[Rfam]
RNA sequence: AAGGCGGAUACCGAAAAGCCUUGAAAGAGUAGGUG
Numbered sequence: 001a002a003g004g005c006g007g008a009u010a011c012c013g014a015a016a017a018g019c020c021u022u023g024a025a026a027g028a029g030u031a032g033g034u035g
Base pairs, nucleotide, nucleotide: 002021003020004019005018010034011033012032
RNA: DUF805b RNA